This 167-nucleotide part of an RNA from Dactylonectria macrodidyma belongs to the Rfam family "Ascomycota telomerase RNA". Lineage of the source: Eukaryota > Opisthokonta > Hypocreales > Nectriaceae > Dactylonectria. The base pairs follow the family's consensus structure. On this family, see Qi et al., Nucleic Acids Res 2013: "The common ancestral core of vertebrate and fungal telomerase RNAs". The family has 4 seed sequences and 475 matches in Rfam 15.1. The family is grouped with related families in Rfam's "Telomerase clan". It is annotated as a non-coding RNA gene.
RNA sequence: CCAACUGUUGGGUACCGAUAGGUUCUGGCAGGUCCCUCAGGUCGGCCUGAAAAGGACGACUGGAGAUGACAGGGCGGUUUUUACGGACGUCUUUUGUCCGCCCGUUAAUGCCCUCCUUUGCUGCUCUUGCAAGUACGAUGGAGAGGAAUCAAAAACUUAUCCUUGUU
Numbered sequence: 001c002c003a004a005c006u007g008u009u010g011g012g013u014a015c016c017g018a019u020a021g022g023u024u025c026u027g028g029c030a031g032g033u034c035c036c037u038c039a040g041g042u043c044g045g046c047c048u049g050a051a052a053a054g055g056a057c058g059a060c061u062g063g064a065g066a067u068g069a070c071a072g073g074g075c076g077g078u079u080u081u082u083a084c085g086g087a088c089g090u091c092u093u094u095u096g097u098c099c100g101c102c103c104g105u106u107a108a109u110g111c112c113c114u115c116c117u118u119u120g121c122u123g124c125u126c127u128u129g130c131a132a133g134u135a136c137g138a139u140g141g142a143g144a145g146g147a148a149u150c151a152a153a154a155a156c157u158u159a160u161c162c163u164u165g166u167u
Stems, first nucleotide, its partner, number of pairs: 006030007014023003035068001036065003040061005048053001086161002089156002092154005111146002113143004124137001128135001